The record is an 80-nucleotide RNA from Paraburkholderia caballeronis, which matches "Burkholderia sRNA 16 (Bc_KC_sr1)" in Rfam.
Its family is annotated with bacterial biofilm matrix in the Gene Ontology.
About the family: Identified by RNA-seq, RACE and Northern blot.
The literature on the family includes a 2017 paper in Sci Rep by Sass et al., "Identification of small RNAs abundant in Burkholderia cenocepacia biofilms reveal putative regulators with a potential role in carbon and iron metabolism".
Rfam classes the family as a small RNA.
It scores 99 bits against the family's covariance model.

RNA sequence: GUACGUGGCUGGCGAAGCCGCCGCGUCACCAUUCUCCUCUUGUCGUUGUUGCUCCGGGGCUACCGCCCCGGUUUUUUUUG
Numbered sequence: 001g002u003a004c005g006u007g008g009c010u011g012g013c014g015a016a017g018c019c020g021c022c023g024c025g026u027c028a029c030c031a032u033u034c035u036c037c038u039c040u041u042g043u044c045g046u047u048g049u050u051g052c053u054c055c056g057g058g059g060c061u062a063c064c065g066c067c068c069c070g071g072u073u074u075u076u077u078u079u080g
Stems, first nucleotide, its partner, number of pairs: 001029002003026005010020004054071007